[Rfam]
RNA: Small nucleolar RNA SNORA72
RNA sequence: CUGCAAAUUAUUCUUGCUGUUCUGAUUUUGUAACAAUCAGUUCAACGUUUGCUAUAUUAAGACCAUGCAUGUGUUACCAGACCUAAUUCUUUCCCUAGGUCUGAUUUUAUAAACUGCUGGUGAUAAAA
Numbered sequence: 001c002u003g004c005a006a007a008u009u010a011u012u013c014u015u016g017c018u019g020u021u022c023u024g025a026u027u028u029u030g031u032a033a034c035a036a037u038c039a040g041u042u043c044a045a046c047g048u049u050u051g052c053u054a055u056a057u058u059a060a061g062a063c064c065a066u067g068c069a070u071g072u073g074u075u076a077c078c079a080g081a082c083c084u085a086a087u088u089c090u091u092u093c094c095c096u097a098g099g100u101c102u103g104a105u106u107u108u109a110u111a112a113a114c115u116g117c118u119g120g121u122g123a124u125a126a127a128a
Stems, first nucleotide, its partner, number of pairs: 003052003018044002022040006062121004067117002078103008